c-di-AMP riboswitch aptamer (ydaO/yuaA leader): a 160-nucleotide sequence from Streptomyces turgidiscabies.
RNA sequence: CCCCAUCGAACACCCGAGUACGGCAGGAGCGGGGGACCCACAGGCAGAACGCCUGUUCCGGUCUCUGGAACAGGCUUGGGGUUAAGUCACGUUCAGGCGUGGCCGGACAUCUCCAGUCCGCACCCGACAGCUCACCUCGCAGGCGACGGAGAGGAAUUCG
Numbered sequence: 001c002c003c004c005a006u007c008g009a010a011c012a013c014c015c016g017a018g019u020a021c022g023g024c025a026g027g028a029g030c031g032g033g034g035g036a037c038c039c040a041c042a043g044g045c046a047g048a049a050c051g052c053c054u055g056u057u058c059c060g061g062u063c064u065c066u067g068g069a070a071c072a073g074g075c076u077u078g079g080g081g082u083u084a085a086g087u088c089a090c091g092u093u094c095a096g097g098c099g100u101g102g103c104c105g106g107a108c109a110u111c112u113c114c115a116g117u118c119c120g121c122a123c124c125c126g127a128c129a130g131c132u133c134a135c136c137u138c139g140c141a142g143g144c145g146a147c148g149g150a151g152a153g154g155a156a157u158u159c160g
Stems, first nucleotide, its partner, number of pairs: 001143002006028002029140006039078002079125003087102004105119004
The pairing is the family consensus, mapped onto this sequence. It scores 62 bits against the family's covariance model. The organism belongs to Streptomyces turgidiscabies, within Bacteria.